Notes: Shown here is a 75-nucleotide sequence from Alteraurantiacibacter buctensis, a member of the family "Makes More Granules Regulator RNA (mmgR)". Clan: suhB sRNA clan. From the family's description: SuhB later renamed mmgR (makes more granules regulator) was a putative non-coding RNA found multiple times in the Agrobacterium tumefaciens genome and related alpha-proteobacteria. Other non-coding RNAs uncovered in the same analysis include: speF, ybhL, metA, and serC.Several studies inSinorhizobium meliloti showed that suhB element is indeed a non-coding RNA:firstly it was detected on Northern blot and called Sm8RNA, secondly in an RNAseq study referred to as SmelC689.The mutant phenotype's (strain lacking the small RNA) cytoplasm contains higher content of polyhydroxybutyrate (PBH)storage granules than wild type strain. Lineage of the source: Bacteria > Pseudomonadati > Alphaproteobacteria > Erythrobacteraceae > Alteraurantiacibacter. Gene Ontology terms of the family: response to nitrogen compound, DNA-templated transcription, termination and protein binding. The base pairs follow the family's consensus structure.

RNA sequence: AGAUCAGGCCUUUCAGGCAUCCUCUCCCAAAACUUUUCAAGGCCCGGUUUCGACCGGGCCCUUUUUUUGGGGUUU
Numbered sequence: 001a002g003a004u005c006a007g008g009c010c011u012u013u014c015a016g017g018c019a020u021c022c023u024c025u026c027c028c029a030a031a032a033c034u035u036u037u038c039a040a041g042g043c044c045c046g047g048u049u050u051c052g053a054c055c056g057g058g059c060c061c062u063u064u065u066u067u068u069g070g071g072g073u074u075u
Stems, first nucleotide, its partner, number of pairs: 008018004041060008